Rfam assigns this 71-nucleotide sequence from Diatraea saccharalis to the family "mir-34 microRNA precursor family". Gene Ontology terms of the family: miRNA-mediated post-transcriptional gene silencing and RISC complex. The family's consensus secondary structure was predicted with RNAalifold. About the family: Human mir-34a was discovered computationally and later experimentally verified. It scores 61 bits against the family's covariance model. The organism belongs to Diatraea, within Eukaryota.
[Rfam]
Nucleotides: 071
Base pairs, nucleotide, nucleotide: 003069004068005067006066009063010062012060013059014058015057018054019053020052021051022050024049025048026047027046028045029044030043031042
Number, partner (000 for none) and nucleotide at each position: 001000u002000c003069c004068g005067c006066a007000u008000u009063g010062g011000c012060a013059g014058u015057g016000u017000g018054g019053u020052u021051a022050g023000c024049u025048g026047g027046u028045u029044g030043u031042u032000u033000a034000u035000c036000u037000c038000a039000g040000a041000c042031a043030a044029c045028a046027g047026c048025c049024a050022c051021u052020a053019a054018c055000g056000c057015c058014a059013c060012u061000g062010c063009u064000c065000c066006u067005g068004c069003g070000u071000a